[Rfam]
RNA: c-di-GMP-I riboswitch aptamer
Organism: Aquibacillus koreensis
RNA sequence: AUAUGAUAAAGGCAAAUCUAUUGAAAAAUAGAGACGCAAAACCACAGGUCUAACGUUAUACAUGACAAUGACGGCUGGGUUACCAAG
Numbered sequence: 001a002u003a004u005g006a007u008a009a010a011g012g013c014a015a016a017u018c019u020a021u022u023g024a025a026a027a028a029u030a031g032a033g034a035c036g037c038a039a040a041a042c043c044a045c046a047g048g049u050c051u052a053a054c055g056u057u058a059u060a061c062a063u064g065a066c067a068a069u070g071a072c073g074g075c076u077g078g079g080u081u082a083c084c085a086a087g
Base pairs, nucleotide, nucleotide: 012037013036017032018031019030020029021028022027040081041080042079043078045077046076047075048072049071050070055066056065057064058063